[Rfam]
RNA sequence: AGCCAUUGCCCAGCAGCCGCAGAACCAUGUCUGCUCUGAGCUGGGUACUGUCUGUUCAGAACAAACACCGGUUUCCGGCAUGCAGCCAAGUGGCC
Numbered sequence: 001a002g003c004c005a006u007u008g009c010c011c012a013g014c015a016g017c018c019g020c021a022g023a024a025c026c027a028u029g030u031c032u033g034c035u036c037u038g039a040g041c042u043g044g045g046u047a048c049u050g051u052c053u054g055u056u057c058a059g060a061a062c063a064a065a066c067a068c069c070g071g072u073u074u075c076c077g078g079c080a081u082g083c084a085g086c087c088a089a090g091u092g093g094c095c
Stems, first nucleotide, its partner, number of pairs: 002094003006090002013086002016083002020077001022074005028067003032063002035060007043052002
Notes
Rfam assigns this 95-nucleotide sequence from Ictidomys tridecemlineatus to the family "mir-589 microRNA precursor family". NCBI's taxonomy places the organism under Eukaryota, Deuterostomia, Gnathostomata, Boreoeutheria, Ictidomys.